[Rfam]
RNA sequence: AUAGAUUUUCAGGGUCGGGUGAGCCCUGCGAUGCAGGGUAAUUCCCUACCGGCGGUGAUAGCCCGCGACUUGGCCAUGGCCAACUGAAUCGGUGAAAUUCCGAUGCCGACGGUAUAGUCCGGAUGGAAGAAAAUCUAC
Number, nucleotide and partner (000 for none) at each position: 001a000002u000003a136004g135005a134006u133007u132008u131009u130010c129011a000012g000013g000014g000015u000016c000017g046018g045019g044020u000021g000022a000023g000024c000025c000026c000027u000028g000029c000030g000031a000032u000033g000034c000035a000036g000037g000038g000039u000040a000041a000042u000043u000044c019045c018046c017047u000048a118049c117050c108051g107052g066053c065054g064055g063056u000057g000058a000059u000060a000061g106062c105063c055064c054065g053066c052067g000068a000069c000070u083071u082072g000073g000074c000075c000076a000077u000078g000079g000080c000081c000082a071083a070084c000085u000086g000087a000088a104089u103090c102091g101092g100093u000094g000095a000096a000097a000098u000099u000100c092101c091102g090103a089104u088105g062106c061107c051108g050109a000110c121111g120112g119113u000114a000115u000116a000117g049118u048119c112120c111121g110122g000123a000124u000125g000126g000127a000128a000129g010130a009131a008132a007133a006134u005135c004136u003137a000138c000
Notes:
This 138-nucleotide RNA from Treponema sp. J25 belongs to the Rfam family "FMN riboswitch aptamer (RFN element)".